This 241-nucleotide RNA sequence from Amborella trichopoda belongs to the Rfam family "MIR8562 microRNA precursor family". A search with the family's covariance model found it, with a score of 222 bits. NCBI's taxonomy places the organism under Eukaryota, Euphyllophyta, Magnoliopsida, Amborellales, Amborella.
RNA sequence: UUUUUAACAAAUCGGAAUAACCUUAAAUUUGGAGCGUGUGUUCAUAAAAAAUAGAUAAAUCUACGAAAAAUAUCAAAAAAAUAUUUUACAUGAAAAAACUUGACCAAAAUACCCCCAAAAAGUUUUGGGGGUAUUUUGGUUAAAUGUUUUUCGCAAAUUAUUUUUUUUAUACUUUUAUUAGGUGUGUCUCACUAAGAUGUACACACGCUCCAAAUUUCAGGUCAUUCCGAUUUGUUGAAAA
Dot-bracket structure: ((((((((((((((((((.((((.((((((((((.((((((.(((...............(((..((((.(((.((((((...............(.(.(((((((((((((((..((....))....))))))))))))))).).)..............)))))).))).))))..)))...............))).)))))).)))))))))).)))).))))))))))))))))))
Numbered sequence: 001u002u003u004u005u006a007a008c009a010a011a012u013c014g015g016a017a018u019a020a021c022c023u024u025a026a027a028u029u030u031g032g033a034g035c036g037u038g039u040g041u042u043c044a045u046a047a048a049a050a051a052u053a054g055a056u057a058a059a060u061c062u063a064c065g066a067a068a069a070a071u072a073u074c075a076a077a078a079a080a081a082u083a084u085u086u087u088a089c090a091u092g093a094a095a096a097a098a099c100u101u102g103a104c105c106a107a108a109a110u111a112c113c114c115c116c117a118a119a120a121a122g123u124u125u126u127g128g129g130g131g132u133a134u135u136u137u138g139g140u141u142a143a144a145u146g147u148u149u150u151u152c153g154c155a156a157a158u159u160a161u162u163u164u165u166u167u168u169a170u171a172c173u174u175u176u177a178u179u180a181g182g183u184g185u186g187u188c189u190c191a192c193u194a195a196g197a198u199g200u201a202c203a204c205a206c207g208c209u210c211c212a213a214a215u216u217u218c219a220g221g222u223c224a225u226u227c228c229g230a231u232u233u234g235u236u237g238a239a240a241a
Stems, first nucleotide, its partner, number of pairs: 001241018020222004025217010036206006043199003061181003066176004071171003075167006096147001098145001100143015117124002